The record is a 143-nucleotide RNA from Vigna angularis, which matches "small nucleolar RNA snoR135" in Rfam.
The literature on the family includes a 2009 paper in Nucleic Acids Res by Chen and Wu, "Mining small RNA sequencing data: a new approach to identify small nucleolar RNAs in Arabidopsis".
It is annotated as an H/ACA-box small nucleolar RNA.
A search with the family's covariance model found it, with a score of 95 bits.
Lineage of the source: Eukaryota > Streptophyta > Euphyllophyta > Fabales > Vigna angularis.
[Rfam]
RNA sequence: UUGGUGGGGAUUUUGUGUAACAGUGUUGUGCUGUCAUAUUUUGCAUUACCCUGGAAGAGUUCCCUGAAAAAAAAAUUUGGGGAAGAUGGGCAGUUUUGUUUCACUUUGAUGUGAAAAUAACAACAAUCAUCUCCCUCACAUUU
Numbered sequence: 001u002u003g004g005u006g007g008g009g010a011u012u013u014u015g016u017g018u019a020a021c022a023g024u025g026u027u028g029u030g031c032u033g034u035c036a037u038a039u040u041u042u043g044c045a046u047u048a049c050c051c052u053g054g055a056a057g058a059g060u061u062c063c064c065u066g067a068a069a070a071a072a073a074a075a076u077u078u079g080g081g082g083a084a085g086a087u088g089g090g091c092a093g094u095u096u097u098g099u100u101u102c103a104c105u106u107u108g109a110u111g112u113g114a115a116a117a118u119a120a121c122a123a124c125a126a127u128c129a130u131c132u133c134c135c136u137c138a139c140a141u142u143u
Base pairs, nucleotide, nucleotide: 005066006065007064008063009062010061015046016045017044018043019042020041079137080136081135082134084132085131086130087129088128089127093124094123095122
Dot-bracket structure: ....((((((....((((((....................))))))..............))))))............((((.((((((...(((..........................)))..)))))).))))......